Shown here is a 206-nucleotide RNA sequence from Vibrio ishigakensis, a member of the family "Manganese Mn2+ riboswitch aptamer (yybP-ykoY)". Taxonomically the source falls in Vibrio (Bacteria, Pseudomonadati, Gammaproteobacteria, Vibrionaceae).
RNA sequence: GCGCCCGUCUUUGGGGAGUAGCUUACCUUCCAAACAAGUUUUCAGGUUUGUACAUCAACAUAAUUGGUGCAAAAUCACCAUGGUGUGCAAGACCCAAGUCCUACGGCUGUUCUAGCCAGACUGGCGUUUAGCAAGACCAUAGACAAGUGUCGUGAACCUAGGUGGGGGAGCGAGGCUUGUUUAUGAGUAGCUUGUCCCCCGCCUAC
Numbered sequence: 001g002c003g004c005c006c007g008u009c010u011u012u013g014g015g016g017a018g019u020a021g022c023u024u025a026c027c028u029u030c031c032a033a034a035c036a037a038g039u040u041u042u043c044a045g046g047u048u049u050g051u052a053c054a055u056c057a058a059c060a061u062a063a064u065u066g067g068u069g070c071a072a073a074a075u076c077a078c079c080a081u082g083g084u085g086u087g088c089a090a091g092a093c094c095c096a097a098g099u100c101c102u103a104c105g106g107c108u109g110u111u112c113u114a115g116c117c118a119g120a121c122u123g124g125c126g127u128u129u130a131g132c133a134a135g136a137c138c139a140u141a142g143a144c145a146a147g148u149g150u151c152g153u154g155a156a157c158c159u160a161g162g163u164g165g166g167g168g169a170g171c172g173a174g175g176c177u178u179g180u181u182u183a184u185g186a187g188u189a190g191c192u193u194g195u196c197c198c199c200c201g202c203c204u205a206c
Stems, first nucleotide, its partner, number of pairs: 026046003048090010065080005